[Rfam]
RNA sequence: ACGUCGUCUGAAGAAUCGCCAUCGCAGCACACGCACAAGAAACGUCCUCAUACGAUGCUUUCUACCCUACGCUGUGGGAAAAGUCCCCGGAGACACAGAGUCCCCCUCGUGGGGCCGGCCCCCGUUCGCUAACGGAAAGCCCUGGCUGCAACCACGCCGAGGAAGGGCGGGGGAUCGGUCGGGCGAGUUCACCCUGCUUGCUUCUCUAUUCCUCUCGGAUGGGAAUGCAAGCUCGGCUCGCCCAGCUCUGUUGCGCUGCCCGACGUCCCGCGGUCUAUCGCGAAGACACGAGCCUUGGCCGCGCUUUUGUGGGCGGAGGGCGCGCACGUCGUUGCUCAUAGACAUAGUUAUGCGAUUGUCGGCUUUCGCGGUUCAUUCUUGUGGAUCGCGGCCGUCAUCUCAAUGGGGCUUACUCUCAUUCGACG
Numbered sequence: 001a002c003g004u005c006g007u008c009u010g011a012a013g014a015a016u017c018g019c020c021a022u023c024g025c026a027g028c029a030c031a032c033g034c035a036c037a038a039g040a041a042a043c044g045u046c047c048u049c050a051u052a053c054g055a056u057g058c059u060u061u062c063u064a065c066c067c068u069a070c071g072c073u074g075u076g077g078g079a080a081a082a083g084u085c086c087c088c089g090g091a092g093a094c095a096c097a098g099a100g101u102c103c104c105c106c107u108c109g110u111g112g113g114g115c116c117g118g119c120c121c122c123c124g125u126u127c128g129c130u131a132a133c134g135g136a137a138a139g140c141c142c143u144g145g146c147u148g149c150a151a152c153c154a155c156g157c158c159g160a161g162g163a164a165g166g167g168c169g170g171g172g173g174a175u176c177g178g179u180c181g182g183g184c185g186a187g188u189u190c191a192c193c194c195u196g197c198u199u200g201c202u203u204c205u206c207u208a209u210u211c212c213u214c215u216c217g218g219a220u221g222g223g224a225a226u227g228c229a230a231g232c233u234c235g236g237c238u239c240g241c242c243c244a245g246c247u248c249u250g251u252u253g254c255g256c257u258g259c260c261c262g263a264c265g266u267c268c269c270g271c272g273g274u275c276u277a278u279c280g281c282g283a284a285g286a287c288a289c290g291a292g293c294c295u296u297g298g299c300c301g302c303g304c305u306u307u308u309g310u311g312g313g314c315g316g317a318g319g320g321c322g323c324g325c326a327c328g329u330c331g332u333u334g335c336u337c338a339u340a341g342a343c344a345u346a347g348u349u350a351u352g353c354g355a356u357u358g359u360c361g362g363c364u365u366u367c368g369c370g371g372u373u374c375a376u377u378c379u380u381g382u383g384g385a386u387c388g389c390g391g392c393c394g395u396c397a398u399c400u401c402a403a404u405g406g407g408g409c410u411u412a413c414u415c416u417c418a419u420u421c422g423a424c425g
Stems, first nucleotide, its partner, number of pairs: 002425005009418003014357006022077007040061003081411003085408004103114004253325003259320003264315001268312004280304002292299002360394005